The record is a 98-nucleotide RNA sequence from Ferrimonas aestuarii, which matches "Manganese Mn2+ riboswitch aptamer (yybP-ykoY)" in Rfam. This RNA was originally discovered in E. coli during a large scale screen and was named SraF. The family was later found to exist upstream of related families of protein genes in many bacteria, including the the yybP and ykoK genes in B. subtilis. The specific functions of these proteins are unknown, but this structured RNA element may be involved in their genetic regulation as a riboswitch. Its family is annotated with manganese ion binding in the Gene Ontology. A search with the family's covariance model found it, with a score of 48 bits.
RNA sequence: GGGGAGUAGCCUCUUUGCGGCGACAAGCAAAGGGCAACGUCAACAUCCUCGGCCUAUUUCUGGCUGUGGCGUUGUCGGCUAAAGCAAGGCUUUAGCUU
Numbered sequence: 001g002g003g004g005a006g007u008a009g010c011c012u013c014u015u016u017g018c019g020g021c022g023a024c025a026a027g028c029a030a031a032g033g034g035c036a037a038c039g040u041c042a043a044c045a046u047c048c049u050c051g052g053c054c055u056a057u058u059u060c061u062g063g064c065u066g067u068g069g070c071g072u073u074g075u076c077g078g079c080u081a082a083a084g085c086a087a088g089g090c091u092u093u094a095g096c097u098u
Stems, first nucleotide, its partner, number of pairs: 014031003033076010050066005077097009